[Rfam]
RNA sequence: CAAAAGGGCAGUUUGCCUAAUGCACACUUCAGCGCAAGUGGUGAAUCGUAGAUCAAUAGAUUUGCUCUGCAUAAUUUUUAAAUAGGUCGUUGGUGUUGGCAUCUUUGCUGAUACGAUCGACUCCUUU
Numbered sequence: 001c002a003a004a005a006g007g008g009c010a011g012u013u014u015g016c017c018u019a020a021u022g023c024a025c026a027c028u029u030c031a032g033c034g035c036a037a038g039u040g041g042u043g044a045a046u047c048g049u050a051g052a053u054c055a056a057u058a059g060a061u062u063u064g065c066u067c068u069g070c071a072u073a074a075u076u077u078u079u080a081a082a083u084a085g086g087u088c089g090u091u092g093g094u095g096u097u098g099g100c101a102u103c104u105u106u107g108c109u110g111a112u113a114c115g116a117u118c119g120a121c122u123c124c125u126u127u
Base pairs, nucleotide, nucleotide: 008070009069010068011067014024015023016022025040026039027038028037029036041065042064043063044062045061046060047059084125085124086123089121090120091119092118093117096116097115098114